[Rfam]
RNA sequence: AAUAAUAAUAGUUGACCAGGGCUCCCUGAGUUCUACAGGCCUCUGUUAUGGGGGUGAUGGCCAGUCCUGGUGCUGAGAGAUU
Numbered sequence: 001a002a003u004a005a006u007a008a009u010a011g012u013u014g015a016c017c018a019g020g021g022c023u024c025c026c027u028g029a030g031u032u033c034u035a036c037a038g039g040c041c042u043c044u045g046u047u048a049u050g051g052g053g054g055u056g057a058u059g060g061c062c063a064g065u066c067c068u069g070g071u072g073c074u075g076a077g078a079g080a081u082u
Stems, first nucleotide, its partner, number of pairs: 001082003006077001011073002015071009024060002027057001029055001031053002036050002038047003
A member of the RNA family "Small nucleolar RNA SNORD86" from Moschus moschiferus, 82 nucleotides long. U86 belongs to the C/D family of snoRNAs. It is the human orthologue of Xenopus laevis U86 and has no identified RNA target. It scores 67 bits against the family's covariance model.